[Rfam]
RNA sequence: UGGCUAUAAAAUAACUUAUUAUGUAGCCACUUUGAGUUACAAUAAUUACUAUGUUAAUUUACGAGAUUAUAGUAACUCCUUACUAAGUGGUUUACUAUUUUCCCAUGUGUUAUAGUAACCCAACUAUCGUAAAUAUCUAUUGACAUUAUCGUAAAUUAGUAUACAAAAUUAUCGUAAAUGGAAGUGGCUACAGAAUAACUUAUUUUGUAGCUG
Numbered sequence: 001u002g003g004c005u006a007u008a009a010a011a012u013a014a015c016u017u018a019u020u021a022u023g024u025a026g027c028c029a030c031u032u033u034g035a036g037u038u039a040c041a042a043u044a045a046u047u048a049c050u051a052u053g054u055u056a057a058u059u060u061a062c063g064a065g066a067u068u069a070u071a072g073u074a075a076c077u078c079c080u081u082a083c084u085a086a087g088u089g090g091u092u093u094a095c096u097a098u099u100u101u102c103c104c105a106u107g108u109g110u111u112a113u114a115g116u117a118a119c120c121c122a123a124c125u126a127u128c129g130u131a132a133a134u135a136u137c138u139a140u141u142g143a144c145a146u147u148a149u150c151g152u153a154a155a156u157u158a159g160u161a162u163a164c165a166a167a168a169u170u171a172u173c174g175u176a177a178a179u180g181g182a183a184g185u186g187g188c189u190a191c192a193g194a195a196u197a198a199c200u201u202a203u204u205u206u207g208u209a210g211c212u213g
Stems, first nucleotide, its partner, number of pairs: 001213014016198005022192012037177004042172006050163013065150003069146002074140001080132004087127006093117006
The family of this 213-nucleotide RNA from Miscanthus lutarioriparius is "MIR6217 microRNA precursor family". The organism belongs to Miscanthus, within Eukaryota. Gene Ontology terms of the family: RISC complex and miRNA-mediated post-transcriptional gene silencing. The family's consensus secondary structure was predicted with RNAalifold.